[Rfam]
RNA sequence: UAAUUCCAGUCUCAAAGCAGAGACAGAUGGGCUGCUUGCAGACCAGUCCGGCUCUGCUUUAGAGACGACAACAGGUAUGAAGAAGAAGGCCGACAGGCCGGAUUCUGAAUACCUGUAGAAUUGCGAGAGCACGCAGUGCGGAGCAAUUCGUGGGCUUA
Numbered sequence: 001u002a003a004u005u006c007c008a009g010u011c012u013c014a015a016a017g018c019a020g021a022g023a024c025a026g027a028u029g030g031g032c033u034g035c036u037u038g039c040a041g042a043c044c045a046g047u048c049c050g051g052c053u054c055u056g057c058u059u060u061a062g063a064g065a066c067g068a069c070a071a072c073a074g075g076u077a078u079g080a081a082g083a084a085g086a087a088g089g090c091c092g093a094c095a096g097g098c099c100g101g102a103u104u105c106u107g108a109a110u111a112c113c114u115g116u117a118g119a120a121u122u123g124c125g126a127g128a129g130c131a132c133g134c135a136g137u138g139c140g141g142a143g144c145a146a147u148u149c150g151u152g153g154g155c156u157u158a
Stems, first nucleotide, its partner, number of pairs: 001158003005154003010065004016058007024050001026048003030043001032041003071116008081106004088099004118149007129139004
Shown here is a 158-nucleotide RNA sequence from Lachnospiraceae bacterium OF09-33XD, a member of the family "Clostridiales-1 RNA". It scores 112 bits against the family's covariance model. NCBI's taxonomy places the organism under Bacteria, Bacillota, Clostridia, Lachnospirales, Lachnospiraceae. The family's consensus secondary structure is taken from published work.